Rfam assigns this 101-nucleotide RNA sequence from Romboutsia sp. CE17 to the family "Purine riboswitch aptamer". The family is grouped with related families in Rfam's "Purine riboswitches". The organism belongs to Romboutsia, within Bacteria. The match comes from Rfam's covariance-model search (77 bits).

RNA sequence: UUUAAAAAUAAGAUAAAUAUUCGUAUAUAAUGGUAAUAUGGUCCAUAAGUUUCUACGAACUCACCGUAAAUGAGUUUACUAUGAAUAGUUCAAGUGCUUAU
Number, nucleotide and partner (000 for none) at each position: 001u000002u000003u000004a000005a000006a000007a000008a000009u000010a000011a000012g000013a000014u000015a000016a000017a000018u087019a086020u085021u084022c083023g082024u081025a080026u000027a000028u048029a000030a046031u045032g044033g043034u000035a000036a000037u000038a000039u000040g000041g000042u000043c033044c032045a031046u030047a000048a028049g000050u000051u000052u000053c000054u000055a000056c000057g077058a076059a075060c074061u073062c072063a071064c000065c000066g000067u000068a000069a000070a000071u063072g062073a061074g060075u059076u058077u057078a000079c000080u025081a024082u023083g022084a021085a020086u019087a018088g000089u000090u000091c000092a000093a000094g000095u000096g000097c000098u000099u000100a000101u000